[Rfam]
RNA sequence: GGUCACGAGUUCCGACGUGUAGCCCCGGCUGGUCGGACGGCAACCCUCCCGCGCGGCGGGGUGCCCCGGGUGAGGACCAGGUCCGGCGGCGUCGUCGUCGGGCAAGCGCGCACG
Dot-bracket structure: ((((....(.((((((....((......)).)))))))(((..(((.((.....))..))).))).........))))..((((((((((...))))))))))...........
RNA: SAM (S-adenosyl methionine) riboswitch aptamer
Organism: Cellulomonas sp. JH27-2